Rfam assigns this 75-nucleotide RNA sequence from Pipistrellus kuhlii to the family "mir-9223 microRNA precursor family". A search with the family's covariance model found it, with a score of 69 bits. The family's consensus secondary structure was predicted with RNAalifold. Gene Ontology terms of the family: miRNA-mediated post-transcriptional gene silencing and RISC complex. The source organism's lineage runs through Eukaryota, Deuterostomia, Euteleostomi, Laurasiatheria and Pipistrellus.

RNA sequence: GGUGGUUCUCUGGUAAUGCACCCUAGAAUCGGACUCCCUCCUCUCUGGUUCCAGGUACAUCACCUGGGAACCACA
Numbered sequence: 001g002g003u004g005g006u007u008c009u010c011u012g013g014u015a016a017u018g019c020a021c022c023c024u025a026g027a028a029u030c031g032g033a034c035u036c037c038c039u040c041c042u043c044u045c046u047g048g049u050u051c052c053a054g055g056u057a058c059a060u061c062a063c064c065u066g067g068g069a070a071c072c073a074c075a
Stems, first nucleotide, its partner, number of pairs: 002074002005071006012064003016060002020056003026051008